[Rfam]
RNA sequence: CAUUAGUCUAACGGAAUCACUUCUGCACAGACUGGGCUCUCAAACUCUCAGUGUGCGGAAAUGCUUCUGCUGCGCUGGUG
Number, nucleotide and partner (000 for none) at each position: 001c080002a079003u000004u077005a076006g075007u074008c000009u072010a071011a000012c069013g068014g067015a066016a065017u000018c063019a062020c000021u060022u059023c058024u057025g056026c055027a054028c053029a052030g000031a000032c051033u050034g000035g000036g000037c000038u000039c000040u000041c000042a000043a000044a000045c000046u000047c000048u000049c000050a033051g032052u029053g028054u027055g026056c025057g024058g023059a022060a021061a000062u019063g018064c000065u016066u015067c014068u013069g012070c000071u010072g009073c000074g007075c006076u005077g004078g000079u002080g001
The record is an 80-nucleotide sequence from Scleropages formosus, which matches "mir-147 microRNA precursor family" in Rfam. The family's consensus secondary structure was predicted with RNAalifold. Its family is annotated with RISC complex and miRNA-mediated post-transcriptional gene silencing in the Gene Ontology. The family has 26 seed sequences and 757 matches in Rfam 15.1. A reference for the family is Ahn et al. (2010), "MicroRNA transcriptome in the newborn mouse ovaries determined by massive parallel sequencing", Mol Hum Reprod. It scores 66 bits against the family's covariance model.